[Rfam]
RNA sequence: UGGGCUGUCAACAAGCGCGGGCCUGGCUCAACGCGGCGCGGCGCGGAGACCACGAGGCGACCGGGAGCGGCUGGGCUCUCGGCUGCGCGCCCUUCGGCCAGGCCGGGAGCCGCGCCAGUCGGAGCCCCUGGCCCAGCGUGGCCCGCGUCCCUCUCGGCGUCCACCUGUCCGGGGUGCUGCCAGCGGGCAUGACCGACCCACCAGGGGCGCCGCCGCCGGCGCUCGCGGGCCGCGGAUGAAGAAGAAGACCCGGCGCCGCUCGACCCGGAGCGAGGAGUUGACCGUGAGUGAGGAGGCAACCGGGAGCGAAGAGGUGGCCCAGAGUGAGGAGAGGACUGGAGGCGAAGAGAUGAAUCGGAGCCAGGAGGUG
Numbered sequence: 001u002g003g004g005c006u007g008u009c010a011a012c013a014a015g016c017g018c019g020g021g022c023c024u025g026g027c028u029c030a031a032c033g034c035g036g037c038g039c040g041g042c043g044c045g046g047a048g049a050c051c052a053c054g055a056g057g058c059g060a061c062c063g064g065g066a067g068c069g070g071c072u073g074g075g076c077u078c079u080c081g082g083c084u085g086c087g088c089g090c091c092c093u094u095c096g097g098c099c100a101g102g103c104c105g106g107g108a109g110c111c112g113c114g115c116c117a118g119u120c121g122g123a124g125c126c127c128c129u130g131g132c133c134c135a136g137c138g139u140g141g142c143c144c145g146c147g148u149c150c151c152u153c154u155c156g157g158c159g160u161c162c163a164c165c166u167g168u169c170c171g172g173g174g175u176g177c178u179g180c181c182a183g184c185g186g187g188c189a190u191g192a193c194c195g196a197c198c199c200a201c202c203a204g205g206g207g208c209g210c211c212g213c214c215g216c217c218g219g220c221g222c223u224c225g226c227g228g229g230c231c232g233c234g235g236a237u238g239a240a241g242a243a244g245a246a247g248a249c250c251c252g253g254c255g256c257c258g259c260u261c262g263a264c265c266c267g268g269a270g271c272g273a274g275g276a277g278u279u280g281a282c283c284g285u286g287a288g289u290g291a292g293g294a295g296g297c298a299a300c301c302g303g304g305a306g307c308g309a310a311g312a313g314g315u316g317g318c319c320c321a322g323a324g325u326g327a328g329g330a331g332a333g334g335a336c337u338g339g340a341g342g343c344g345a346a347g348a349g350a351u352g353a354a355u356c357g358g359a360g361c362c363a364g365g366a367g368g369u370g
Stems, first nucleotide, its partner, number of pairs: 020104008038093001040091003043053001045051002061082008144352002148348002166189006205224008257272005
This 370-nucleotide RNA from Rhinopithecus roxellana belongs to the Rfam family "Bag-1 internal ribosome entry site (IRES)". Taxonomically the source falls in Rhinopithecus (Eukaryota, Amniota, Haplorrhini, Colobinae). This family represents the bag-1 internal ribosome entry site (IRES). When expressed the BAG-1 protein is known to enhance the anti-apoptotic properties of Bcl-2. Although bag-1 translation usually occurs via a cap-dependent mechanism it has been found to contain a IRES in its 5' UTR. Translation via the IRES has been found to be common following heat shock when cap-dependent scanning is compromised. The literature on the family includes a 2001 paper in Oncogene by Coldwell et al., "The p36 isoform of BAG-1 is translated by internal ribosome entry following heat shock". It scores 321 bits against the family's covariance model.